[Rfam]
RNA sequence: ACGUGAGAUAGAGGUUGCGAUACUUAUGAGUAUUCUAAUGGAGACACAGAGAUGUCUAUGAACUUAGAUGAAAGGAAGUAUUGCCGAAAUUGAUAAAUUUCUCUGCAUUUAUCAAUUGGGGCUGUUUUCGAAUAGAAACAGAACUGUCAUAUGUACAGACGUGUACGUAUGAAGAGCUAUCUACAAA
Numbered sequence: 001a002c003g004u005g006a007g008a009u010a011g012a013g014g015u016u017g018c019g020a021u022a023c024u025u026a027u028g029a030g031u032a033u034u035c036u037a038a039u040g041g042a043g044a045c046a047c048a049g050a051g052a053u054g055u056c057u058a059u060g061a062a063c064u065u066a067g068a069u070g071a072a073a074g075g076a077a078g079u080a081u082u083g084c085c086g087a088a089a090u091u092g093a094u095a096a097a098u099u100u101c102u103c104u105g106c107a108u109u110u111a112u113c114a115a116u117u118g119g120g121g122c123u124g125u126u127u128u129c130g131a132a133u134a135g136a137a138a139c140a141g142a143a144c145u146g147u148c149a150u151a152u153g154u155a156c157a158g159a160c161g162u163g164u165a166c167g168u169a170u171g172a173a174g175a176g177c178u179a180u181c182u183a184c185a186a187a
Stems, first nucleotide, its partner, number of pairs: 006182006017084009034068005088117011118145002122141007147172009

Shown here is a 187-nucleotide sequence from Bacillus cereus, a member of the family "Lysine riboswitch aptamer".
Taxonomically the source falls in Bacillus cereus (Bacteria, Bacillati, Bacillota, Bacillaceae).